Shown here is a 59-nucleotide RNA sequence from Gordonia effusa, a member of the family "F6 TB sRNA". The family's RNA type in Rfam is small RNA. The organism belongs to Gordonia effusa, within Bacteria. It scores 48 bits against the family's covariance model.
[Rfam]
RNA sequence: CGGGUGGCUCCGAUCGAGCUGCCAGACCCCCGACCCGGCAGCUUGGUCGGAGCCUCUAU
Numbered sequence: 001c002g003g004g005u006g007g008c009u010c011c012g013a014u015c016g017a018g019c020u021g022c023c024a025g026a027c028c029c030c031c032g033a034c035c036c037g038g039c040a041g042c043u044u045g046g047u048c049g050g051a052g053c054c055u056c057u058a059u
Base pairs, nucleotide, nucleotide: 003057004056007053008052009051010050011049012048013047014046015045017043018042019041020040021039022038023037